[Rfam]
RNA sequence: GAUUUAUAAAGACGAGUGGAGAGAAUGGGCUCUAUGAAACUCGGGCAACCAUCGAACAUUCGAUAAGGUGCCAAUACCUACCUGAGGUGCCAUAGUGGCUUUUGGGACUUAUAAACC
Dot-bracket structure: (.((((((....(((((...(((..[[[[)))......)))))((((.((((((......))))..))))))...(]]]]((((((..............))))))..))))))).)
RNA: SAM riboswitch aptamer (S box leader)